A member of the RNA family "Nematode snoRNA ceN88" from Gongylonema pulchrum, 158 nucleotides long. The family's RNA type in Rfam is H/ACA-box small nucleolar RNA. A reference for the family is Jia et al. (2007), "Systematic identification of non-coding RNA 2,2,7-trimethylguanosine cap structures in Caenorhabditis elegans", BMC Mol Biol. The organism belongs to Gongylonema, within Eukaryota. Rfam links the family to the GO terms RNA processing and nucleolus. A search with the family's covariance model found it, with a score of 52 bits.
RNA sequence: GGCCUCUGUUCUUGGCGCUCAUGAUGCCCGUUGGUUCAUGAGUGAAUGCAUAAUAGAGGUAGAGCAGUAAGCUGUGCCAGCUAGGCCAGUGUUCGAAUCUCCUUCGAUGUCAGGACUUCUUGAUUUCCUGAUAUUAUUCCUCUGGGUUCGAAACAAAU
Numbered sequence: 001g002g003c004c005u006c007u008g009u010u011c012u013u014g015g016c017g018c019u020c021a022u023g024a025u026g027c028c029c030g031u032u033g034g035u036u037c038a039u040g041a042g043u044g045a046a047u048g049c050a051u052a053a054u055a056g057a058g059g060u061a062g063a064g065c066a067g068u069a070a071g072c073u074g075u076g077c078c079a080g081c082u083a084g085g086c087c088a089g090u091g092u093u094c095g096a097a098u099c100u101c102c103u104u105c106g107a108u109g110u111c112a113g114g115a116c117u118u119c120u121u122g123a124u125u126u127c128c129u130g131a132u133a134u135u136a137u138u139c140c141u142c143u144g145g146g147u148u149c150g151a152a153a154c155a156a157a158u
Base pairs, nucleotide, nucleotide: 003059004058005057006056007055008054009053010052016044017043018042021039022038023037024036069090092152093151094150095149096148097147098146099145100144106135107134110131111130112129113128114127115126